RNA sequence: UUCUUAUCCAGAGAGAGGGAGGGACUGACCCUAUGAACUCUCGGCAACCGGUCCUGAAAAGGAAGCUUUCCUUUUGAGACACGGUGCCAAUUUCAGAGGAAUGGAUGCAUUCCGAAGAUGGGAA
Number, nucleotide and partner (000 for none) at each position: 001u124002u123003c122004u121005u120006a119007u118008c117009c000010a000011g000012a000013g042014a041015g040016a039017g038018g000019g000020a000021g031022g030023g029024a000025c096026u095027g094028a093029c023030c022031c021032u000033a000034u000035g000036a000037a000038c017039u016040c015041u014042c013043g088044g087045c086046a085047a000048c084049c083050g000051g080052u079053c078054c000055u000056g000057a000058a000059a000060a000061g000062g000063a000064a000065g000066c000067u000068u000069u000070c000071c000072u000073u000074u000075u000076g000077a000078g053079a052080c051081a000082c000083g049084g048085u046086g045087c044088c043089a000090a000091u000092u116093u028094c027095a026096g025097a000098g113099g112100a111101a110102u109103g000104g000105a000106u000107g000108c000109a102110u101111u100112c099113c098114g000115a000116a092117g008118a007119u006120g005121g004122g003123a002124a001
RNA: SAM riboswitch aptamer (S box leader)